[Rfam]
RNA: mir-137 microRNA precursor family
RNA sequence: CUCGGCUACGGGUAUUCUUGGGUUGAUAAUACGGAUGCCGAUGUUAUUGCUUGAGAAUACGCGUGGCUGAG
Numbered sequence: 001c002u003c004g005g006c007u008a009c010g011g012g013u014a015u016u017c018u019u020g021g022g023u024u025g026a027u028a029a030u031a032c033g034g035a036u037g038c039c040g041a042u043g044u045u046a047u048u049g050c051u052u053g054a055g056a057a058u059a060c061g062c063g064u065g066g067c068u069g070a071g
Stems, first nucleotide, its partner, number of pairs: 001071005008064003012060012025048007032040002